mir-31 microRNA precursor family: an 82-nucleotide sequence from Strongyloides venezuelensis.
RNA sequence: AUUUGAAGUUCAGGCAAGAUGUUGGCAUAGCUGAUAGUUUGGAAUUUUUCAGUUAUGCUAUAUGUUGCCAGAACUUUUUUUU
Numbered sequence: 001a002u003u004u005g006a007a008g009u010u011c012a013g014g015c016a017a018g019a020u021g022u023u024g025g026c027a028u029a030g031c032u033g034a035u036a037g038u039u040u041g042g043a044a045u046u047u048u049u050c051a052g053u054u055a056u057g058c059u060a061u062a063u064g065u066u067g068c069c070a071g072a073a074c075u076u077u078u079u080u081u082u
Stems, first nucleotide, its partner, number of pairs: 005077007013069005019063003023060009
Its family is annotated with RISC complex and gene silencing by miRNA in the Gene Ontology.
The match comes from Rfam's covariance-model search (61 bits).
The organism belongs to Strongyloides, within Eukaryota.
On this family, see Aravin et al., Dev Cell 2003: "The small RNA profile during Drosophila melanogaster development".